Record summary: This 131-nucleotide sequence from Ovis aries belongs to the Rfam family "Small nucleolar RNA SNORA44". The source organism's lineage runs through Eukaryota, Deuterostomia, Sarcopterygii, Dipnotetrapodomorpha and Ovis. By type it is an H/ACA-box small nucleolar RNA. From the family's description: ACA44 is a member of the H/ACA class of snoRNA that guide the sites of modification of uridines to pseudouridines. For this family Rfam cites "RNomics: an experimental approach that identifies 201 candidates for novel, small, non-messenger RNAs in mouse" (Huttenhofer et al., EMBO J, 2001).
[Rfam]
RNA sequence: CAGCAUGUUUCCAAGGGCUGUGGCUUGUCGUGGCCAUGGGAUCUCCAACUGCAUGCGAGAGCAACGUGGAGAGACUUUGACAGCACAGGUUAGCAUAAUACCUGCAGCUGCCACUCGCCUCUCCUAUAAUC
Numbered sequence: 001c002a003g004c005a006u007g008u009u010u011c012c013a014a015g016g017g018c019u020g021u022g023g024c025u026u027g028u029c030g031u032g033g034c035c036a037u038g039g040g041a042u043c044u045c046c047a048a049c050u051g052c053a054u055g056c057g058a059g060a061g062c063a064a065c066g067u068g069g070a071g072a073g074a075c076u077u078u079g080a081c082a083g084c085a086c087a088g089g090u091u092a093g094c095a096u097a098a099u100a101c102c103u104g105c106a107g108c109u110g111c112c113a114c115u116c117g118c119c120u121c122u123c124c125u126a127u128a129a130u131c
Stems, first nucleotide, its partner, number of pairs: 011039002016035007068124006083111002086104004